[Rfam]
RNA sequence: UCCGGUCCUCGGUAGUGGCGCCCGGGUGCGGAACAUACCGCCCGUGCGCUUCGAUCGAAGACCGGC
Numbered sequence: 001u002c003c004g005g006u007c008c009u010c011g012g013u014a015g016u017g018g019c020g021c022c023c024g025g026g027u028g029c030g031g032a033a034c035a036u037a038c039c040g041c042c043c044g045u046g047c048g049c050u051u052c053g054a055u056c057g058a059a060g061a062c063c064g065g066c
Stems, first nucleotide, its partner, number of pairs: 002065006009058005017050005023044004029040003

The family of this 66-nucleotide RNA sequence from Stackebrandtia nassauensis is "Actino-pnp RNA".